[Rfam]
RNA sequence: CCAGCUGGCUGGGCGGCCGCACUCGCAAACGCCGAAAGGCCGCAAGUGAGGAAAGUCCGGGCUCCAUGGAGACACGGUGCCGGUUAAUGGCCGGCGGGGGCGACCCCAGGGAAAGUGCCACAGAAAGCAAACCGCCACGACUUUGUCGGGGUAAGGGUGAAAGGGUGGGGUAAGAGCCCACCGCGCGACUGGCAACAGGAGCGGCACGGUAAACCCCACCGGGAGCAAAACCGAAUAGGGGCGGUGCGAGGGGAAACCCUCGAGGGCUGUUUCCGGCUCACCGUCCGGGUAGGUUGCGUGAGGCGCAUGGCAACAUGCGCCCAAGAUGAAUGGCCGCCACGUUCUCGUCCCGCGAGGGGCGAGGGCCAUACAGAACCCGGCUUACAGGCCAGCUGGCAGU
Numbered sequence: 001c002c003a004g005c006u007g008g009c010u011g012g013g014c015g016g017c018c019g020c021a022c023u024c025g026c027a028a029a030c031g032c033c034g035a036a037a038g039g040c041c042g043c044a045a046g047u048g049a050g051g052a053a054a055g056u057c058c059g060g061g062c063u064c065c066a067u068g069g070a071g072a073c074a075c076g077g078u079g080c081c082g083g084u085u086a087a088u089g090g091c092c093g094g095c096g097g098g099g100g101c102g103a104c105c106c107c108a109g110g111g112a113a114a115g116u117g118c119c120a121c122a123g124a125a126a127g128c129a130a131a132c133c134g135c136c137a138c139g140a141c142u143u144u145g146u147c148g149g150g151g152u153a154a155g156g157g158u159g160a161a162a163g164g165g166u167g168g169g170g171u172a173a174g175a176g177c178c179c180a181c182c183g184c185g186c187g188a189c190u191g192g193c194a195a196c197a198g199g200a201g202c203g204g205c206a207c208g209g210u211a212a213a214c215c216c217c218a219c220c221g222g223g224a225g226c227a228a229a230a231c232c233g234a235a236u237a238g239g240g241g242c243g244g245u246g247c248g249a250g251g252g253g254a255a256a257c258c259c260u261c262g263a264g265g266g267c268u269g270u271u272u273c274c275g276g277c278u279c280a281c282c283g284u285c286c287g288g289g290u291a292g293g294u295u296g297c298g299u300g301a302g303g304c305g306c307a308u309g310g311c312a313a314c315a316u317g318c319g320c321c322c323a324a325g326a327u328g329a330a331u332g333g334c335c336g337c338c339a340c341g342u343u344c345u346c347g348u349c350c351c352g353c354g355a356g357g358g359g360c361g362a363g364g365g366c367c368a369u370a371c372a373g374a375a376c377c378c379g380g381c382u383u384a385c386a387g388g389c390c391a392g393c394u395g396g397c398a399g400u
Stems, first nucleotide, its partner, number of pairs: 001396010011385001012338007020048004025043002053383003057380005062225004071272002075221005080094005095109001096107004110216002115214002117210003132156002134152003138148004164182006183205001184203003189198003229295004239286006264279005302321008
Bacterial RNase P class A: a 400-nucleotide sequence from Mesorhizobium japonicum. Rfam describes the family as follows. Ribonuclease P (RNase P) is a ubiquitous endoribonuclease, found in archaea, bacteria and eukarya as well as chloroplasts and mitochondria. Rfam links the family to the GO terms dimeric ribonuclease P complex, tRNA processing and ribonuclease P activity.